This 53-nucleotide sequence belongs to the Rfam family "GP20-b RNA". The family's consensus secondary structure is taken from published work.

RNA sequence: UGUCGGCGGACGUAAAAACGCAGCCGCGGAGAAGCAACCUCGUAAAAAGCGUA
Numbered sequence: 001u002g003u004c005g006g007c008g009g010a011c012g013u014a015a016a017a018a019c020g021c022a023g024c025c026g027c028g029g030a031g032a033a034g035c036a037a038c039c040u041c042g043u044a045a046a047a048a049g050c051g052u053a
Base pairs, nucleotide, nucleotide: 001012002011003010004009006021007020008019029041030040031039